[Rfam]
RNA sequence: AGCCAACCUAGCCCGACGGGGCGAAAGGCGGACUUCCCACCCGCUUGGUUGGCUGAUUUUUUCUAGUGG
Numbered sequence: 001a002g003c004c005a006a007c008c009u010a011g012c013c014c015g016a017c018g019g020g021g022c023g024a025a026a027g028g029c030g031g032a033c034u035u036c037c038c039a040c041c042c043g044c045u046u047g048g049u050u051g052g053c054u055g056a057u058u059u060u061u062u063c064u065a066g067u068g069g
Stems, first nucleotide, its partner, number of pairs: 001054008011022004028044004035069002038066001
RNA: int-alpA RNA